[Rfam]
Plastid-psbN 5UTR RNA: a 61-nucleotide sequence from Anabaenopsis elenkinii. Taxonomically the source falls in Anabaenopsis elenkinii (Bacteria, Bacillati, Cyanophyceae, Anabaenopsis). Plastid psbN is a non-coding RNA (ncRNA) recognised in plastids. It was reported as a conserved 11 stem-loop in the prime untranslated region (5UTR) of psbN genes. Pairs were carried over by alignment from the consensus structure, which was predicted with LocARNA. The family has 63 seed sequences and 2,345 matches in Rfam 15.1.
RNA sequence: AAAAACACCCAUUAAAGGCGUAGUACCCCAACCAGGGGCAACCUUACCGUAUUCAGAAUUU
Dot-bracket structure: ................((.((.((.((.......)).)).)).))................